Background
Shown here is an 89-nucleotide sequence from Elstera cyanobacteriorum, a member of the family "rpsB sRNA". The family has 4 seed sequences and 245 matches in Rfam 15.1. Taxonomically the source falls in Elstera (Bacteria, Pseudomonadati, Pseudomonadota, Alphaproteobacteria). Rfam classes the family as a small RNA. Pairs were carried over by alignment from the consensus structure, which is taken from published work.

[Rfam]
RNA sequence: CACACGCGGGCGAGGGAGCCAGGCUCUCCUUGCCGGUGCCAAUUUCAUUGGUCACUGCCCGCGGCGGAUCAACCGGACUAAGGAUCUCU
Numbered sequence: 001c002a003c004a005c006g007c008g009g010g011c012g013a014g015g016g017a018g019c020c021a022g023g024c025u026c027u028c029c030u031u032g033c034c035g036g037u038g039c040c041a042a043u044u045u046c047a048u049u050g051g052u053c054a055c056u057g058c059c060c061g062c063g064g065c066g067g068a069u070c071a072a073c074c075g076g077a078c079u080a081a082g083g084a085u086c087u088c089u
Base pairs, nucleotide, nucleotide: 001066003064005063006062007061008060009059010058011057015029016028017027018026038052039051040050041049042048043047